[Rfam]
RNA sequence: ACUUCCGCCGACACGACACAACAUCCUGCUGCGAUGUUGUGCUCAGACCUGCCGUGUCGGUCGGCGGAAGC
Numbered sequence: 001a002c003u004u005c006c007g008c009c010g011a012c013a014c015g016a017c018a019c020a021a022c023a024u025c026c027u028g029c030u031g032c033g034a035u036g037u038u039g040u041g042c043u044c045a046g047a048c049c050u051g052c053c054g055u056g057u058c059g060g061u062c063g064g065c066g067g068a069a070g071c
Base pairs, nucleotide, nucleotide: 002070003069004068005067006066008064009063010062011061012060020038021037022036023035024034025033046058047057048056